[Rfam]
RNA: Acido-Lenti-1 RNA
RNA sequence: CCCCGGACUCGCGUCCGGGGCUAAAACCUGCCACCGCUUCGCGGUU
Numbered sequence: 001c002c003c004c005g006g007a008c009u010c011g012c013g014u015c016c017g018g019g020g021c022u023a024a025a026a027c028c029u030g031c032c033a034c035c036g037c038u039u040c041g042c043g044g045u046u
Stems, first nucleotide, its partner, number of pairs: 001020008033045005